[Rfam]
RNA sequence: AUGGCAAAUGAUGAGUAAGAAAAAUAAUGAUUUGGGGUGACGCCCGAGUCCUCACGAAUUAUGUGAGAAGAAUUUUUGAACGGGUACAGGUCGCCCUUUGGAUUGACCCGCUUUUUUGGCAGGAUGCCCAAGUGCAGUAAUCUGCCUG
Numbered sequence: 001a002u003g004g005c006a007a008a009u010g011a012u013g014a015g016u017a018a019g020a021a022a023a024a025u026a027a028u029g030a031u032u033u034g035g036g037g038u039g040a041c042g043c044c045c046g047a048g049u050c051c052u053c054a055c056g057a058a059u060u061a062u063g064u065g066a067g068a069a070g071a072a073u074u075u076u077u078g079a080a081c082g083g084g085u086a087c088a089g090g091u092c093g094c095c096c097u098u099u100g101g102a103u104u105g106a107c108c109c110g111c112u113u114u115u116u117u118g119g120c121a122g123g124a125u126g127c128c129c130a131a132g133u134g135c136a137g138u139a140a141u142c143u144g145c146c147u148g
Stems, first nucleotide, its partner, number of pairs: 005019001029050008051067005081148005088143004093138002097132002100129002103126001107123002110120002